[Rfam]
RNA sequence: AUACUCAUGUAAUCGCUGCAUAUCUUUAGAAUAUGCAGAGGAAAGUCCAUGCUCGCACAAACUGUGACGUUUGUAGUGUUCGUGCUUGACGAAAUCAUAAGUCAAGGUAACCUUUGGUUAACGGCAGGGGAAGUCUCUAAGUCAUUUUAGAUAUGGGAUGCGAACCUUGAAAGUGCCACAGUGACGGAGUUAGAUUGGAAACAAUCUAAGUGGAACGAGGUAAACCCCACGAGUGAGCAACCCAAAUAAUGGUAGGGGCAUCUUUGAUUAGGUAAACGAACUGAAAAAAGGACAAGUCAAUCACUUGUAGAUAGAUGAUUACAACCCGAGUACAAGGCUGACCACCACUUGGAGUACAACGGUACAGAACAUGGCUUAUCGAG
Numbered sequence: 001a002u003a004c005u006c007a008u009g010u011a012a013u014c015g016c017u018g019c020a021u022a023u024c025u026u027u028a029g030a031a032u033a034u035g036c037a038g039a040g041g042a043a044a045g046u047c048c049a050u051g052c053u054c055g056c057a058c059a060a061a062c063u064g065u066g067a068c069g070u071u072u073g074u075a076g077u078g079u080u081c082g083u084g085c086u087u088g089a090c091g092a093a094a095u096c097a098u099a100a101g102u103c104a105a106g107g108u109a110a111c112c113u114u115u116g117g118u119u120a121a122c123g124g125c126a127g128g129g130g131a132a133g134u135c136u137c138u139a140a141g142u143c144a145u146u147u148u149a150g151a152u153a154u155g156g157g158a159u160g161c162g163a164a165c166c167u168u169g170a171a172a173g174u175g176c177c178a179c180a181g182u183g184a185c186g187g188a189g190u191u192a193g194a195u196u197g198g199a200a201a202c203a204a205u206c207u208a209a210g211u212g213g214a215a216c217g218a219g220g221u222a223a224a225c226c227c228c229a230c231g232a233g234u235g236a237g238c239a240a241c242c243c244a245a246a247u248a249a250u251g252g253u254a255g256g257g258g259c260a261u262c263u264u265u266g267a268u269u270a271g272g273u274a275a276a277c278g279a280a281c282u283g284a285a286a287a288a289a290g291g292a293c294a295a296g297u298c299a300a301u302c303a304c305u306u307g308u309a310g311a312u313a314g315a316u317g318a319u320u321a322c323a324a325c326c327c328g329a330g331u332a333c334a335a336g337g338c339u340g341a342c343c344a345c346c347a348c349u350u351g352g353a354g355u356a357c358a359a360c361g362g363u364a365c366a367g368a369a370c371a372u373g374g375c376u377u378a379u380c381g382a383g
Base pairs, nucleotide, nucleotide: 004383005382006381007379008323009322010321011320012319013318014317016038017037018036019035020034021033043377044376045375047374048373049372050371051370052237053236054235055234056233057074058073059072060071061070062069080232081231082230083229084228085106086105087104088103089102090101107122108120109119110118111117112116123227124226126167127166128165134158135157136156137155141152142151143150173225174224175221176220177219190209191208192207193206194205195204196203197202241257242256243255261291262290263289264288265287292308293307294306295305296304297303325362326361330357331356332355333354
The family of this 383-nucleotide RNA from Virgibacillus phasianinus is "Bacterial RNase P class B". Rfam classes the family as a ribozyme. From the family's description: Ribonuclease P (RNase P) is a ubiquitous endoribonuclease, found in archaea, bacteria and eukarya as well as chloroplasts and mitochondria. Its best characterised activity is the generation of mature 5'-ends of tRNAs by cleaving the 5'-leader elements of precursor-tRNAs. Cellular RNase Ps are ribonucleoproteins. Clan: RNaseP clan. It scores 312 bits against the family's covariance model.